[Rfam]
RNA: Bacterial large subunit ribosomal RNA, nucleotides 672 to 899
Organism: Desulfotignum phosphitoxidans
RNA sequence: GAGUUACUUAAUGCAGCCAGGUUAAGCCGAUAGGUGUAGCCGAAGCGAAAGCGAGUCUGAACAGGGCGGUCAGUUGCAUUGAGUAGACCCGAAACCAGGUGAUCUAUCCAUGUCCAGGGUGAAGCGCCAGUAAAAUGGUGUGGAGGCCCGAACCGAUACAGGUUAAAAACUGUUCGGAUGAGGUGUGGAUAGGGGUGAAAGGCCAAACAAACCUGGAGAUAGCUGGUU
Numbered sequence: 001g002a003g004u005u006a007c008u009u010a011a012u013g014c015a016g017c018c019a020g021g022u023u024a025a026g027c028c029g030a031u032a033g034g035u036g037u038a039g040c041c042g043a044a045g046c047g048a049a050a051g052c053g054a055g056u057c058u059g060a061a062c063a064g065g066g067c068g069g070u071c072a073g074u075u076g077c078a079u080u081g082a083g084u085a086g087a088c089c090c091g092a093a094a095c096c097a098g099g100u101g102a103u104c105u106a107u108c109c110a111u112g113u114c115c116a117g118g119g120u121g122a123a124g125c126g127c128c129a130g131u132a133a134a135a136u137g138g139u140g141u142g143g144a145g146g147c148c149c150g151a152a153c154c155g156a157u158a159c160a161g162g163u164u165a166a167a168a169a170c171u172g173u174u175c176g177g178a179u180g181a182g183g184u185g186u187g188g189a190u191a192g193g194g195g196u197g198a199a200a201g202g203c204c205a206a207a208c209a210a211a212c213c214u215g216g217a218g219a220u221a222g223c224u225g226g227u228u
Stems, first nucleotide, its partner, number of pairs: 005085013020041004026035003045052002055067004088226002091223001095216006104192011115180001117149004124141006153177003158173004194204003